The record is a 60-nucleotide sequence from Gossypium armourianum, which matches "Plastid-psbN 5UTR RNA" in Rfam. Plastid psbN is a non-coding RNA (ncRNA) recognised in plastids.
RNA sequence: UGCGACACCCAUCAAAGGAGCCGUUCCUCAUCCAGGGGCUACCUUCCAUAUUCUGAAUUC
Numbered sequence: 001u002g003c004g005a006c007a008c009c010c011a012u013c014a015a016a017g018g019a020g021c022c023g024u025u026c027c028u029c030a031u032c033c034a035g036g037g038g039c040u041a042c043c044u045u046c047c048a049u050a051u052u053c054u055g056a057a058u059u060c
Base pairs, nucleotide, nucleotide: 017045018044020042023039024038025037026036027035
Dot-bracket structure: ................((.(..(((((.......)))))..).))...............
Taxonomically the source falls in Gossypium (Eukaryota, Euphyllophyta, Spermatophyta, Malvales).
The base pairs follow the family's consensus structure, which was predicted with LocARNA.
Rfam 15.1 lists 2,345 matches to the family in 397 species.